[Rfam]
RNA sequence: UAUUAACUGAAUAAACGAUUUCAUAUAAUAGCAGGGAUACGGCCUGCGAGUUUCUACCGGUUCACCGUAAAUGAACCGACUAUGAAAGGAAGAAAAGAAGAU
Numbered sequence: 001u002a003u004u005a006a007c008u009g010a011a012u013a014a015a016c017g018a019u020u021u022c023a024u025a026u027a028a029u030a031g032c033a034g035g036g037a038u039a040c041g042g043c044c045u046g047c048g049a050g051u052u053u054c055u056a057c058c059g060g061u062u063c064a065c066c067g068u069a070a071a072u073g074a075a076c077c078g079a080c081u082a083u084g085a086a087a088g089g090a091a092g093a094a095a096a097g098a099a100g101a102u
Stems, first nucleotide, its partner, number of pairs: 019087007029049001031047005058078007

The family of this 102-nucleotide sequence from Halobacillus sp. BAB-2008 is "Purine riboswitch aptamer". The organism belongs to Halobacillus, within Bacteria. The family is grouped with related families in Rfam's "Purine riboswitches". The family's consensus secondary structure is taken from published work. The match comes from Rfam's covariance-model search (88 bits).